Flavo-1 RNA: an 80-nucleotide RNA from Flavobacterium psychrophilum. Rfam's curators put it in the seed alignment. Lineage of the source: Bacteria > Pseudomonadati > Bacteroidota > Flavobacterium > Flavobacterium psychrophilum.

RNA sequence: UUCUAGCCCCGAUAGUAGUGAAAAUCCUUUUUCUGGCUCCUUUAGCCAGGAAAAGAUUGUAACGGAUAGCGGGAAUAGCU
Numbered sequence: 001u002u003c004u005a006g007c008c009c010c011g012a013u014a015g016u017a018g019u020g021a022a023a024a025u026c027c028u029u030u031u032u033c034u035g036g037c038u039c040c041u042u043u044a045g046c047c048a049g050g051a052a053a054a055g056a057u058u059g060u061a062a063c064g065g066a067u068a069g070c071g072g073g074a075a076u077a078g079c080u
Stems, first nucleotide, its partner, number of pairs: 009072003013068002018063002023058004029053010

Rfam classes the family as a small RNA.